[Rfam]
RNA sequence: GCUGGGAGUUGUGGCGUGCUCCUGUAAUCCAGUGUCUAGGAGGCUUGAGUGUGUGGAUGGUUUGAGCUGGGGAGCUCUGCUGUUGGGAUUGGGUUCGUUGACCGGGCGUCCCAUCUAAGCCUGAUAUCAAUAUGGGGGUGUGGGAGGAAUCUCGCAUGUCCAGGUUGGCUAAGGAAUGGUGUACCGGGCCAGGGGGGAAACCCAGCAGCCAAAAGCCAUCGUGUCGGGCAGUAGGGGGAUUGCGCUUGGGAGAGUCGUCUCAUCAGUAGCCCUAGCAAUAUAAUCGGACCGCACUCUUA
Numbered sequence: 001g002c003u004g005g006g007a008g009u010u011g012u013g014g015c016g017u018g019c020u021c022c023u024g025u026a027a028u029c030c031a032g033u034g035u036c037u038a039g040g041a042g043g044c045u046u047g048a049g050u051g052u053g054u055g056g057a058u059g060g061u062u063u064g065a066g067c068u069g070g071g072g073a074g075c076u077c078u079g080c081u082g083u084u085g086g087g088a089u090u091g092g093g094u095u096c097g098u099u100g101a102c103c104g105g106g107c108g109u110c111c112c113a114u115c116u117a118a119g120c121c122u123g124a125u126a127u128c129a130a131u132a133u134g135g136g137g138g139u140g141u142g143g144g145a146g147g148a149a150u151c152u153c154g155c156a157u158g159u160c161c162a163g164g165u166u167g168g169c170u171a172a173g174g175a176a177u178g179g180u181g182u183a184c185c186g187g188g189c190c191a192g193g194g195g196g197g198a199a200a201c202c203c204a205g206c207a208g209c210c211a212a213a214a215g216c217c218a219u220c221g222u223g224u225c226g227g228g229c230a231g232u233a234g235g236g237g238g239a240u241u242g243c244g245c246u247u248g249g250g251a252g253a254g255u256c257g258u259c260u261c262a263u264c265a266g267u268a269g270c271c272c273u274a275g276c277a278a279u280a281u282a283a284u285c286g287g288a289c290c291g292c293a294c295u296c297u298u299a
Base pairs, nucleotide, nucleotide: 001044002043003042004023005022006021007020008019009018028041029040030039047296048295049294050293051292052291053290058286059285060284061283062282066276067275068274069273070272071271072270077269078268079267080266081265082264084262085261086260087259088258089257092256093255094254095253096252098250102249103248104247105246106245107244108243109242110238111237114235115234116233117232119229120228121227122226123225124224125223126222127221128167129166130165131164133162134161135160136159138157139156140155141154142153143152144151145150169173176219177218178217179216180215187210188209189208194203195202196201